[Rfam]
Rfam assigns this 149-nucleotide sequence from Clostridium tetanomorphum to the family "c-di-AMP riboswitch aptamer (ydaO/yuaA leader)".

RNA sequence: AAUGAAGAAGUGCUGAAUCCUAAGAUGAUAAAUAAUUAGGUACGGAGGAACCAGUAAAUUGGGGUUAAUCUUGACAAUAUUAUUUGUUGAGUAGGGGAACCUUAACCCGAACCCGGCAGCUAACUUCGGAAGCAAGAAAGGUGGAAAAU
Numbered sequence: 001a002a003u004g005a006a007g008a009a010g011u012g013c014u015g016a017a018u019c020c021u022a023a024g025a026u027g028a029u030a031a032a033u034a035a036u037u038a039g040g041u042a043c044g045g046a047g048g049a050a051c052c053a054g055u056a057a058a059u060u061g062g063g064g065u066u067a068a069u070c071u072u073g074a075c076a077a078u079a080u081u082a083u084u085u086g087u088u089g090a091g092u093a094g095g096g097g098a099a100c101c102u103u104a105a106c107c108c109g110a111a112c113c114c115g116g117c118a119g120c121u122a123a124c125u126u127c128g129g130a131a132g133c134a135a136g137a138a139a140g141g142u143g144g145a146a147a148a149u
Base pairs, nucleotide, nucleotide: 011134012133013132014131019040020039021038022037023036043128044127045126046125047124052061053060062114063113064112070091071090072089073088074087075086076085077084094108095107096106